Description: Rfam assigns this 93-nucleotide sequence from Thermacetogenium phaeum to the family "Selenocysteine transfer RNA".
RNA sequence: GGGAGCGGCUUGUGCCUGGUGGUGCGCCUGGACUUCAAAUCCAGCGGGAGGCGUGAAGAGCGUCUCCGGUGGGUUCGAUUCCCACACGCUCCC
Dot-bracket structure: ((((((((..((((((....)))))).(((((.......)))))..(((((...........)))))..((((.......))))).)))))))
Numbered sequence: 001g002g003g004a005g006c007g008g009c010u011u012g013u014g015c016c017u018g019g020u021g022g023u024g025c026g027c028c029u030g031g032a033c034u035u036c037a038a039a040u041c042c043a044g045c046g047g048g049a050g051g052c053g054u055g056a057a058g059a060g061c062g063u064c065u066c067c068g069g070u071g072g073g074u075u076c077g078a079u080u081c082c083c084a085c086a087c088g089c090u091c092c093c
Stems, first nucleotide, its partner, number of pairs: 001093007008085001011026006028044005047067005070084004

Notes
The organism belongs to Thermacetogenium phaeum, within Bacteria. For this family Rfam cites "Eukaryotic selenocysteine tRNA has the 9/4 secondary structure" (Mizutani and Goto, FEBS Lett, 2000). The family's consensus secondary structure is taken from published work.